[Rfam]
Nucleotides: 158
Base pairs, nucleotide, nucleotide: 006153007152009150010149011147013099015142016141017140020136021135022134025132026131027130028129029128030127031126032125039117040116041115042114043113046074048072049071055066056065057064058063082108083107085105088102089101090100
Number, partner (000 for none) and nucleotide at each position: 001000a002000u003000a004000g005000a006153a007152c008000c009150u010149c011147g012000g013099u014000a015142g016141g017140u018000g019000a020136g021135g022134c023000u024000a025132c026131c027130g028129a029128a030127a031126g032125g033000a034000u035000a036000u037000g038000g039117a040116u041115u042114g043113c044000u045000g046074c047000c048072g049071c050000g051000a052000a053000g054000g055066g056065u057064u058063g059000g060000a061000g062000a063058c064057a065056a066055c067000c068000a069000u070000a071049g072048c073000a074046g075000g076000u077000c078000a079000a080000c081000a082108g083107g084000c085105u086000u087000u088102g089101u090100c091000g092000a093000a094000u095000u096000u097000c098000a099013a100090g101089g102088c103000a104000u105085a106000a107083c108082c109000u110000a111000a112000c113043g114042c115041a116040a117039u118000u119000u120000c121000a122000c123000c124000g125032c126031c127030u128029u129028u130027c131026g132025g133000a134022g135021c136020u137000a138000a139000a140017g141016c142015u143000u144000g145000a146000a147011c148000g149010g150009g151000c152007g153006u154000g155000c156000g157000c158000a

This 158-nucleotide RNA sequence from Sporobacter termitidis belongs to the Rfam family "M-box riboswitch aptamer (ykoK leader)". The pairing is the family consensus, mapped onto this sequence.